[Rfam]
RNA sequence: CAAGUCCCUGUCGGGCAAGGGUUAGCCACCCACCCGUAUCGAGUGUUGCGCCUGUGGCGGAGCGCCUGCGUGGAUGCAAGUCUGCAAAGGGCCGCGAACAAAACAGGUGAAGCGUACACAGAGAAGGUUAUAGGCCAUAGGGGAGGCCGCACUCCCUGAAUUGCUGGUACAGCCCCGAAAUCGAGUAUUGUUGCAGUCGACGAGCGUUUUAACGGCCGCGAAGUCAACAGGAAACGACCGCAAACGGCAAGGUCGUGGAAGGCUGCCCGGGUCCUCAGGCU
Number, nucleotide and partner (000 for none) at each position: 001c000002a000003a000004g000005u000006c000007c000008c000009u000010g000011u000012c036013g035014g034015g033016c000017a000018a000019g031020g030021g029022u028023u250024a000025g248026c247027c000028a022029c021030c020031c019032a000033c015034c014035c013036g012037u000038a000039u122040c121041g000042a000043g119044u118045g117046u116047u114048g113049c109050g108051c107052c106053u105054g104055u103056g000057g000058c000059g099060g000061a000062g000063c000064g000065c000066c000067u000068g000069c000070g000071u000072g000073g000074a000075u000076g000077c000078a000079a000080g000081u000082c000083u000084g000085c000086a000087a000088a000089g000090g000091g000092c000093c000094g000095c000096g000097a000098a000099c059100a000101a000102a000103a055104c054105a053106g052107g051108u050109g049110a000111a000112g000113c048114g047115u000116a046117c045118a044119c043120a000121g040122a039123g000124a000125a000126g000127g000128u000129u000130a000131u000132a000133g000134g000135c000136c000137a000138u000139a000140g000141g000142g000143g000144a000145g000146g000147c000148c000149g000150c000151a000152c000153u000154c000155c000156c000157u000158g000159a000160a000161u000162u000163g000164c000165u000166g000167g000168u000169a275170c000171a000172g272173c271174c270175c269176c000177g267178a000179a000180a000181u000182c000183g000184a000185g000186u000187a000188u000189u000190g000191u000192u000193g266194c265195a264196g263197u262198c261199g225200a224201c223202g000203a000204g219205c218206g217207u000208u000209u000210u000211a000212a000213c000214g000215g000216c000217c206218g205219c204220g000221a000222a000223g201224u200225c199226a000227a000228c000229a000230g000231g000232a000233a000234a256235c255236g254237a253238c252239c251240g000241c000242a000243a000244a000245c000246g000247g026248c025249a000250a023251g239252g238253u237254c236255g235256u234257g000258g000259a000260a000261g198262g197263c196264u195265g194266c193267c177268c000269g175270g174271g173272u172273c000274c000275u169276c000277a000278g000279g000280c000281u000
RNA: Group II catalytic intron D1-D4-6
Organism: Desulfofustis glycolicus